[Rfam]
RNA sequence: UCCAGCAGUAGUCAGCUGUCCGGAUAGAACCAUUCCUGUGAUGGUGUUACACUGCUGGGAGAGGAAAGUCCUGUCUUUUUCCUCCAGUUGCCUCUGUCACUGUUCUGGUGGCGCCUGGCACUGGUGUGAGGCAGAACUGUGCUUCCUUGAGAGUGUGCUAAGCGUUCACUUGGGCCGCUUAGUUCUAGUCUGGGAGCAGACACA
Numbered sequence: 001u002c003c004a005g006c007a008g009u010a011g012u013c014a015g016c017u018g019u020c021c022g023g024a025u026a027g028a029a030c031c032a033u034u035c036c037u038g039u040g041a042u043g044g045u046g047u048u049a050c051a052c053u054g055c056u057g058g059g060a061g062a063g064g065a066a067a068g069u070c071c072u073g074u075c076u077u078u079u080u081c082c083u084c085c086a087g088u089u090g091c092c093u094c095u096g097u098c099a100c101u102g103u104u105c106u107g108g109u110g111g112c113g114c115c116u117g118g119c120a121c122u123g124g125u126g127u128g129a130g131g132c133a134g135a136a137c138u139g140u141g142c143u144u145c146c147u148u149g150a151g152a153g154u155g156u157g158c159u160a161a162g163c164g165u166u167c168a169c170u171u172g173g174g175c176c177g178c179u180u181a182g183u184u185c186u187a188g189u190c191u192g193g194g195a196g197c198a199g200a201c202a203c204a
Base pairs, nucleotide, nucleotide: 001059002058003057004056005055006054007053008052009051011050012049015045016044017043018042019041020040021038022036023035024034068137069136071134072133073132074131075130076129083126085124089118094113098110099109100108101107140198141197142196143195144194145193146192155185157183159181160180161179162178163177164176